[Rfam]
RNA sequence: UGCGGUUCAGCCCGACCCCCCGGGGCUGAACUUCCGGCGGCCCUCGCUCCUCCCCCCUGGCGAGGGCCGCCCCCU
Numbered sequence: 001u002g003c004g005g006u007u008c009a010g011c012c013c014g015a016c017c018c019c020c021c022g023g024g025g026c027u028g029a030a031c032u033u034c035c036g037g038c039g040g041c042c043c044u045c046g047c048u049c050c051u052c053c054c055c056c057c058u059g060g061c062g063a064g065g066g067c068c069g070c071c072c073c074c075u
Stems, first nucleotide, its partner, number of pairs: 002035001004032010036071013
RNA: 6C RNA
Organism: Prauserella marina